The family of this 304-nucleotide RNA sequence from Zea mays is "Plant signal recognition particle RNA".
RNA sequence: GCUGAGCAAGUAGCGAUUGCUUGUAACCCGAGCGGGGGCAAUAAGGAAGUGUGGAUGUCAAUUGUGGUGCAUGUGCUUGGGUCUAGUGCUACAAACUAUGGACCACCCAUUCCAAGUUGUGUAGUGGGUUUCGGGUGCCUUGGCGAAUGCCUUUGCAUCCUAACACCUAAAGUGGCAGACAUUGCGUGAGGCUGGCUUUACAGAGCAGCGAGUACCGCCCGCCACCAGCGGUGGAAGGAUAAUGAGCCAGUAUGCUCUAGGCCAAUUAGGGAACAUGUGCCCUCUAUGGUAGACCACUAUCUUU
Numbered sequence: 001g002c003u004g005a006g007c008a009a010g011u012a013g014c015g016a017u018u019g020c021u022u023g024u025a026a027c028c029c030g031a032g033c034g035g036g037g038g039c040a041a042u043a044a045g046g047a048a049g050u051g052u053g054g055a056u057g058u059c060a061a062u063u064g065u066g067g068u069g070c071a072u073g074u075g076c077u078u079g080g081g082u083c084u085a086g087u088g089c090u091a092c093a094a095a096c097u098a099u100g101g102a103c104c105a106c107c108c109a110u111u112c113c114a115a116g117u118u119g120u121g122u123a124g125u126g127g128g129u130u131u132c133g134g135g136u137g138c139c140u141u142g143g144c145g146a147a148u149g150c151c152u153u154u155g156c157a158u159c160c161u162a163a164c165a166c167c168u169a170a171a172g173u174g175g176c177a178g179a180c181a182u183u184g185c186g187u188g189a190g191g192c193u194g195g196c197u198u199u200a201c202a203g204a205g206c207a208g209c210g211a212g213u214a215c216c217g218c219c220c221g222c223c224a225c226c227a228g229c230g231g232u233g234g235a236a237g238g239a240u241a242a243u244g245a246g247c248c249a250g251u252a253u254g255c256u257c258u259a260g261g262c263c264a265a266u267u268a269g270g271g272a273a274c275a276u277g278u279g280c281c282c283u284c285u286a287u288g289g290u291a292g293a294c295c296a297c298u299a300u301c302u303u304u
Stems, first nucleotide, its partner, number of pairs: 001039003004022006027036003043303004048298004053294001056291002059289001061287002064284001066282002069280007077272002080263007088255002093251001099249003104244002107238002110236005116229004121225002124222002126166001128164003133160006142151003167172001174219003178215001183212001185210003192203003
Lineage of the source: Eukaryota > Viridiplantae > Tracheophyta > Andropogoneae > Zea.